[Rfam]
RNA sequence: CCAUGGUGGUGGCUGGGGUCAGCCGCAUGGUGGUGGUUGG
Number, nucleotide and partner (000 for none) at each position: 001c030002c029003a028004u027005g026006g000007u000008g000009g000010u000011g000012g000013c000014u000015g000016g000017g000018g000019u000020c000021a000022g000023c000024c000025g000026c005027a004028u003029g002030g001031u000032g000033g000034u000035g000036g000037u000038u000039g000040g000
A member of the RNA family "Prion pseudoknot", 40 nucleotides long. It is annotated as a cis-regulatory element. A reference for the family is Barrette et al. (2001), "Pseudoknots in prion protein mRNAs confirmed by comparative sequence analysis and pattern searching", Nucleic Acids Res. From the family's description: This family represents a predicted pseudoknot structure found in prion protein mRNA. It has been suggested that the family has a possible effect in prion protein translation. The sequence is in the family's curated seed alignment.